[Rfam]
RNA sequence: GUAAUUCCGGUGAGAAACCGGGACACCGUAAGCCCAAGGGUUCCUACGCAAGGUUUAUCCACGUAGGGUUAGGCGGGCCUAAGCCGAGGACGAGAGUCGUAGGCGAUGGACAGCAGGUUAGUAUUCCUGCCCCACCGAAGUUGUGCCUGAGGCAGGAGGGGUGACCCGGAAGGAUAGGUCGAGCGGGCCGAUUGGACAUGGUCCGUUCUGCAGUCGUAGGCGUCUGGGGGCAGGCAAAUCCACCCCCAGGUUAAGCGGAGGGCUGUAGAGAAGCGGAGACGUCAGUCAAUGCGACUCGAUUGAGUCCAUGCCGGCGAGAAAAACCUCGCUGCCGAACAACCUCGGUGCCCGUACCGCAAACCGACACUGGUGGGCGGCGGUAAGUACCGUCAGGUGAU
Numbered sequence: 001g002u003a004a005u006u007c008c009g010g011u012g013a014g015a016a017a018c019c020g021g022g023a024c025a026c027c028g029u030a031a032g033c034c035c036a037a038g039g040g041u042u043c044c045u046a047c048g049c050a051a052g053g054u055u056u057a058u059c060c061a062c063g064u065a066g067g068g069u070u071a072g073g074c075g076g077g078c079c080u081a082a083g084c085c086g087a088g089g090a091c092g093a094g095a096g097u098c099g100u101a102g103g104c105g106a107u108g109g110a111c112a113g114c115a116g117g118u119u120a121g122u123a124u125u126c127c128u129g130c131c132c133c134a135c136c137g138a139a140g141u142u143g144u145g146c147c148u149g150a151g152g153c154a155g156g157a158g159g160g161g162u163g164a165c166c167c168g169g170a171a172g173g174a175u176a177g178g179u180c181g182a183g184c185g186g187g188c189c190g191a192u193u194g195g196a197c198a199u200g201g202u203c204c205g206u207u208c209u210g211c212a213g214u215c216g217u218a219g220g221c222g223u224c225u226g227g228g229g230g231c232a233g234g235c236a237a238a239u240c241c242a243c244c245c246c247c248a249g250g251u252u253a254a255g256c257g258g259a260g261g262g263c264u265g266u267a268g269a270g271a272a273g274c275g276g277a278g279a280c281g282u283c284a285g286u287c288a289a290u291g292c293g294a295c296u297c298g299a300u301u302g303a304g305u306c307c308a309u310g311c312c313g314g315c316g317a318g319a320a321a322a323a324c325c326u327c328g329c330u331g332c333c334g335a336a337c338a339a340c341c342u343c344g345g346u347g348c349c350c351g352u353a354c355c356g357c358a359a360a361c362c363g364a365c366a367c368u369g370g371u372g373g374g375c376g377g378c379g380g381u382a383a384g385u386a387c388c389g390u391c392a393g394g395u396g397a398u
Stems, first nucleotide, its partner, number of pairs: 005023006024396004032375004038355002043067006052060002074351004078109002083104003087100001089098003113130005133347006140340004151333002158327005166314004172307003177301005184205006206272002212264004220256002225248006233241002274291002278287003361370002377390004